[Rfam]
Shown here is a 114-nucleotide sequence from Caulobacter sp. Root655, a member of the family "rpsB sRNA". Lineage of the source: Bacteria > Pseudomonadati > Alphaproteobacteria > Caulobacterales > Caulobacter. The family has 4 seed sequences and 245 matches in Rfam 15.1. For this family Rfam cites "Identification of candidate structured RNAs in the marine organism 'Candidatus Pelagibacter ubique'" (Meyer et al., BMC Genomics, 2009). It scores 41 bits against the family's covariance model. By type it is a small RNA.

RNA sequence: CACACGUGGACGUGCGGCGACGCCGGGGAGACAUCCCGUCGUUACCGUUCCGGUCCCGGUCCGAAUCGUCGGAGCGGGGGUGUCCACGGAGGUUCAACCGGAAGAAGGAGACCU
Numbered sequence: 001c002a003c004a005c006g007u008g009g010a011c012g013u014g015c016g017g018c019g020a021c022g023c024c025g026g027g028g029a030g031a032c033a034u035c036c037c038g039u040c041g042u043u044a045c046c047g048u049u050c051c052g053g054u055c056c057c058g059g060u061c062c063g064a065a066u067c068g069u070c071g072g073a074g075c076g077g078g079g080g081u082g083u084c085c086a087c088g089g090a091g092g093u094u095c096a097a098c099c100g101g102a103a104g105a106a107g108g109a110g111a112c113c114u
Base pairs, nucleotide, nucleotide: 001091003089005088006087007086008085009084010083011082016046017045024038025037027036055078056077057076058075060073061072062071063070064069